[Rfam]
RNA sequence: UUAGAGGUUGUAGUGAUCAGGGUCCAGAGAUAAUAAACCCCGUAAUUCGGGGUUUUUUAUUAUCUGCAACAUGACCAUUCAGGUAUCUACUGGGCUUUAAUGCCCUUUUUUU
Numbered sequence: 001u002u003a004g005a006g007g008u009u010g011u012a013g014u015g016a017u018c019a020g021g022g023u024c025c026a027g028a029g030a031u032a033a034u035a036a037a038c039c040c041c042g043u044a045a046u047u048c049g050g051g052g053u054u055u056u057u058u059a060u061u062a063u064c065u066g067c068a069a070c071a072u073g074a075c076c077a078u079u080c081a082g083g084u085a086u087c088u089a090c091u092g093g094g095c096u097u098u099a100a101u102g103c104c105c106u107u108u109u110u111u112u
Base pairs, nucleotide, nucleotide: 035055036054037053038052039051040050041049042048092105093104094103095102
Rfam assigns this 112-nucleotide RNA sequence from Photobacterium halotolerans to the family "Gammaprotebacteria rimP leader". The match comes from Rfam's covariance-model search (76 bits). The family's consensus secondary structure is taken from published work. On this family, see Naville and Gautheret, Genome Biol 2010: "Premature terminator analysis sheds light on a hidden world of bacterial transcriptional attenuation". The family's RNA type in Rfam is cis-regulatory leader.